[Rfam]
RNA sequence: GUCUCCCGUGCCUGCUGUGCUGAUUAUCAGUGUGUGUGUUUAGCUGGCUCAGUUCAGCAGGAACGGGAG
Numbered sequence: 001g002u003c004u005c006c007c008g009u010g011c012c013u014g015c016u017g018u019g020c021u022g023a024u025u026a027u028c029a030g031u032g033u034g035u036g037u038g039u040u041u042a043g044c045u046g047g048c049u050c051a052g053u054u055c056a057g058c059a060g061g062a063a064c065g066g067g068a069g
Stems, first nucleotide, its partner, number of pairs: 003069004008064002011061003015057003019053005027047005
This 69-nucleotide RNA sequence from Chanos chanos belongs to the Rfam family "mir-24 microRNA precursor family". The family's consensus secondary structure was predicted with RNAalifold. The match comes from Rfam's covariance-model search (68 bits). Rfam's curators write: This family represents the microRNA (miRNA) mir-24 family. miRNAs are transcribed as ~70nt precursors (modelled here) and subsequently processed by the Dicer enzyme to give a ~22nt product. In this case the mature sequence comes from the 3' arm of the precursor. The extents of the hairpin precursors are not generally known and are estimated based on hairpin prediction. The products are thought to have regulatory roles through complementarity to mRNA. The involvement of Dicer in miRNA processing suggests a relationship with the phenomenon of RNA interference. miRNAs are numbered based on the sequence of the mature RNA. miR-24 has been identified in human and mouse. The source organism's lineage runs through Eukaryota, Chordata, Clupeocephala, Otomorpha and Chanos.